[Rfam]
RNA: Drosophila small cajal body-specific RNA PsiU6-40
Nucleotides: 158
Base pairs, nucleotide, nucleotide: 004078005077006076007075008074009073013071014070015069016068019065029063030062031061032060033059034058035057041055042054044053045052046051086157087156088155098150099149100148101147102146103145106141108139109138110137111136112135113134115132117130118129119128
Number, partner (000 for none) and nucleotide at each position: 001000u002000g003000g004078g005077g006076a007075u008074g009073c010000a011000c012000u013071u014070g015069c016068u017000c018000c019065g020000c021000u022000a023000a024000u025000g026000g027000c028000g029063g030062c031061g032060c033059c034058c035057a036000a037000u038000u039000g040000c041055u042054g043000a044053g045052a046051a047000u048000u049000g050000u051046u052045u053044c054042c055041g056000u057035u058034g059033g060032g061031c062030g063029u064000c065019c066000u067000c068016g069015g070014c071013a072000u073009g074008c075007a076006u077005c078004c079000c080000a081000g082000a083000u084000u085000a086157a087156a088155u089000a090000c091000c092000u093000u094000c095000a096000g097000a098150c099149u100148g101147g102146a103145a104000c105000u106141c107000u108139g109138u110137g111136c112135g113134g114000c115132c116000g117130c118129a119128u120000u121000c122000c123000a124000g125000c126000c127000u128119g129118u130117g131000c132115g133000c134113u135112c136111g137110c138109a139108u140000c141106g142000u143000u144000c145103u146102u147101c148100c149099a150098g151000g152000c153000a154000c155088a156087u157086u158000a